The record is a 148-nucleotide RNA sequence from Paracidovorax citrulli, which matches "radC RNA" in Rfam.
The sequence is in the family's curated seed alignment.
Pairs were carried over by alignment from the consensus structure, which is taken from published work.
The source organism's lineage runs through Bacteria, Pseudomonadati, Betaproteobacteria, Paracidovorax and Paracidovorax citrulli.
RNA sequence: ACGCUUCGGCUAUGCCUGCCGACAGAUGUCGGCGACAUGCCCGGCAACCACCGGUCUUCGAGGUUGCGCGCAGCGCCCCGCUGCGUGGCCGGACCAGUUCGCUUCGCAUCACUUCGCGAACGGCCUCCGGUUCCACGGGGGCGCAUGC
Numbered sequence: 001a002c003g004c005u006u007c008g009g010c011u012a013u014g015c016c017u018g019c020c021g022a023c024a025g026a027u028g029u030c031g032g033c034g035a036c037a038u039g040c041c042c043g044g045c046a047a048c049c050a051c052c053g054g055u056c057u058u059c060g061a062g063g064u065u066g067c068g069c070g071c072a073g074c075g076c077c078c079c080g081c082u083g084c085g086u087g088g089c090c091g092g093a094c095c096a097g098u099u100c101g102c103u104u105c106g107c108a109u110c111a112c113u114u115c116g117c118g119a120a121c122g123g124c125c126u127c128c129g130g131u132u133c134c135a136c137g138g139g140g141g142c143g144c145a146u147g148c
Base pairs, nucleotide, nucleotide: 011039012038013037014036015034018033019032020031021030022029023028044067045066046065047064048063049062053090054089055088056087068086069085070084071083072082073081116148117147118146123142124141125140126139127138128137129136